[Rfam]
RNA sequence: GUGGGCUAUGGCGACAUGACACCGAAAACACCGUUGGGCCAGAUAAUCGGAUCGGGAUGCUGCAUUUGUGGAGUGCUCGUGGUGGCAUUGCCGAUUCCCAUUAUCGUGAACAAU
Numbered sequence: 001g002u003g004g005g006c007u008a009u010g011g012c013g014a015c016a017u018g019a020c021a022c023c024g025a026a027a028a029c030a031c032c033g034u035u036g037g038g039c040c041a042g043a044u045a046a047u048c049g050g051a052u053c054g055g056g057a058u059g060c061u062g063c064a065u066u067u068g069u070g071g072a073g074u075g076c077u078c079g080u081g082g083u084g085g086c087a088u089u090g091c092c093g094a095u096u097c098c099c100a101u102u103a104u105c106g107u108g109a110a111c112a113a114u
Stems, first nucleotide, its partner, number of pairs: 001114002004111001007108005013102002018097002037077003049063001051061001
This 114-nucleotide RNA sequence from Protopolystoma xenopodis belongs to the Rfam family "Potassium channel RNA editing signal". This family represents a group of sequences related to the human potassium channel Kv1.1 hairpin element which directs the efficient modification of an adenosine to inosine by an adenosine deaminase acting on RNA (ADAR). For this family Rfam cites "Control of human potassium channel inactivation by editing of a small mRNA hairpin" (Bhalla et al., Nat Struct Mol Biol, 2004). Pairs were carried over by alignment from the consensus structure, which is taken from published work.